[Rfam]
RNA sequence: AAAGUGAUAAAUAAGUUCUCUCAUAUAAUACCGGGGAUAUGGCCCGAAAGUUUCUACCCAGCGACCGUAAAUAGCUGGACUAUGAGAGAAAGUGUCUUACUG
Numbered sequence: 001a002a003a004g005u006g007a008u009a010a011a012u013a014a015g016u017u018c019u020c021u022c023a024u025a026u027a028a029u030a031c032c033g034g035g036g037a038u039a040u041g042g043c044c045c046g047a048a049a050g051u052u053u054c055u056a057c058c059c060a061g062c063g064a065c066c067g068u069a070a071a072u073a074g075c076u077g078g079a080c081u082a083u084g085a086g087a088g089a090a091a092g093u094g095u096c097u098u099a100c101u102g
Stems, first nucleotide, its partner, number of pairs: 018088008029049001032046004058078005064072001